This 102-nucleotide sequence from Veillonella criceti belongs to the Rfam family "TPP riboswitch aptamer (THI element)". Pairs were carried over by alignment from the consensus structure, which is taken from published work. The match comes from Rfam's covariance-model search (70 bits). Rfam links the family to the GO term thiamine pyrophosphate binding.
RNA sequence: CAAAAAAGCUAGGGGAGCCUGUAGGCUGAGAAAAGUGCUCGAACACUUGACCCUUGACCUGAUUCGGAUAAUGCCGACGUAGGAAAGCUAUACAGGACGUUU
Numbered sequence: 001c002a003a004a005a006a007a008g009c010u011a012g013g014g015g016a017g018c019c020u021g022u023a024g025g026c027u028g029a030g031a032a033a034a035g036u037g038c039u040c041g042a043a044c045a046c047u048u049g050a051c052c053c054u055u056g057a058c059c060u061g062a063u064u065c066g067g068a069u070a071a072u073g074c075c076g077a078c079g080u081a082g083g084a085a086a087g088c089u090a091u092a093c094a095g096g097a098c099g100u101u102u
Stems, first nucleotide, its partner, number of pairs: 007089004011054004017026003033048005058083004064077004